[Rfam]
RNA sequence: GACCUAACCCGUCAGCUUCGGCUGUCGGUAUGGUUGUAAAUACCCGCUAGAGAUUAAAGGACUCCCAGUCAGAGUCACUCUAGCGGGUCAUAUCUGGAAACGGGUAUGGGUCUGACCGAAAGGUUGGAUC
Numbered sequence: 001g002a003c004c005u006a007a008c009c010c011g012u013c014a015g016c017u018u019c020g021g022c023u024g025u026c027g028g029u030a031u032g033g034u035u036g037u038a039a040a041u042a043c044c045c046g047c048u049a050g051a052g053a054u055u056a057a058a059g060g061a062c063u064c065c066c067a068g069u070c071a072g073a074g075u076c077a078c079u080c081u082a083g084c085g086g087g088u089c090a091u092a093u094c095u096g097g098a099a100a101c102g103g104g105u106a107u108g109g110g111u112c113u114g115a116c117c118g119a120a121a122g123g124u125u126g127g128a129u130c
Stems, first nucleotide, its partner, number of pairs: 001035004009028003013024003043087010060076004089108008109130009

This 130-nucleotide RNA belongs to the Rfam family "LOOT RNA".